[Rfam]
RNA sequence: UACUCAUCCAGAGUGGUGGAGGGAUUCGGCCCGCAGAAGCCACAGCAACCGGUUCAAUUCGGUGCUACAUCCGACAGGCAACUGGAAGAUGAGGG
Numbered sequence: 001u002a003c004u005c006a007u008c009c010a011g012a013g014u015g016g017u018g019g020a021g022g023g024a025u026u027c028g029g030c031c032c033g034c035a036g037a038a039g040c041c042a043c044a045g046c047a048a049c050c051g052g053u054u055c056a057a058u059u060c061g062g063u064g065c066u067a068c069a070u071c072c073g074a075c076a077g078g079c080a081a082c083u084g085g086a087a088g089a090u091g092a093g094g095g
Stems, first nucleotide, its partner, number of pairs: 001095001003093006013043005021032003026074004044066004049062002051058001070087001075084003
SAM riboswitch aptamer (S box leader): a 95-nucleotide RNA from Negativicoccus succinicivorans. Gene Ontology term of the family: regulation of gene expression. The source organism's lineage runs through Bacteria, Bacillota, Veillonellales, Veillonellaceae and Negativicoccus. The literature on the family includes a 2006 paper in Nature by Montange and Batey, "Structure of the S-adenosylmethionine riboswitch regulatory mRNA element".